[Rfam]
RNA sequence: AAGUGUCUUCUGUGAUUGUUCUCUGUGCAUUGAUCGAUAUAUAGAUGUCCUCAUCUGUUUAUCAGAUCUGCUCAGUGCCGACCCCUCCGUGUCACACACUCUUGUUUCCCAGUAAUUCUGUCUGGCAUUGCUUGGCAACAGGUUCUGAUUGGCUUUCCGCUGCCUUUGCUACCGACGCCGGGUCGACUAGCAAGUUGACGCACGGUCAUGCAUUUGCAAUCCACCACCCAAUCUCAGCCUCGCGAAUCUCGGUCUCCGUGAUUGAGAUACGUAUAGGUAACGGGUUGGGUGGGGGCGCUAAUGUUGAAGCCAACGACAGUUGCCCAAGUCAGCCAUUUUCAAAAUUUCUUGGUUAAGUAACUUUGUAGCUUAGCUUCGGAUUUUCGUAAUAAAUUUGCUGUUCAGAACACUU
Numbered sequence: 001a002a003g004u005g006u007c008u009u010c011u012g013u014g015a016u017u018g019u020u021c022u023c024u025g026u027g028c029a030u031u032g033a034u035c036g037a038u039a040u041a042u043a044g045a046u047g048u049c050c051u052c053a054u055c056u057g058u059u060u061a062u063c064a065g066a067u068c069u070g071c072u073c074a075g076u077g078c079c080g081a082c083c084c085c086u087c088c089g090u091g092u093c094a095c096a097c098a099c100u101c102u103u104g105u106u107u108c109c110c111a112g113u114a115a116u117u118c119u120g121u122c123u124g125g126c127a128u129u130g131c132u133u134g135g136c137a138a139c140a141g142g143u144u145c146u147g148a149u150u151g152g153c154u155u156u157c158c159g160c161u162g163c164c165u166u167u168g169c170u171a172c173c174g175a176c177g178c179c180g181g182g183u184c185g186a187c188u189a190g191c192a193a194g195u196u197g198a199c200g201c202a203c204g205g206u207c208a209u210g211c212a213u214u215u216g217c218a219a220u221c222c223a224c225c226a227c228c229c230a231a232u233c234u235c236a237g238c239c240u241c242g243c244g245a246a247u248c249u250c251g252g253u254c255u256c257c258g259u260g261a262u263u264g265a266g267a268u269a270c271g272u273a274u275a276g277g278u279a280a281c282g283g284g285u286u287g288g289g290u291g292g293g294g295g296c297g298c299u300a301a302u303g304u305u306g307a308a309g310c311c312a313a314c315g316a317c318a319g320u321u322g323c324c325c326a327a328g329u330c331a332g333c334c335a336u337u338u339u340c341a342a343a344a345u346u347u348c349u350u351g352g353u354u355a356a357g358u359a360a361c362u363u364u365g366u367a368g369c370u371u372a373g374c375u376u377c378g379g380a381u382u383u384u385c386g387u388a389a390u391a392a393a394u395u396u397g398c399u400g401u402u403c404a405g406a407a408c409a410c411u412u
Stems, first nucleotide, its partner, number of pairs: 001412006012095005023075003027071003032068004036063004042057004
A member of the RNA family "Arthropod 7SK RNA" from Drosophila busckii, 412 nucleotides long. A reference for the family is Gruber et al. (2008), "Arthropod 7SK RNA", Mol Biol Evol. The organism belongs to Dorsilopha, within Eukaryota.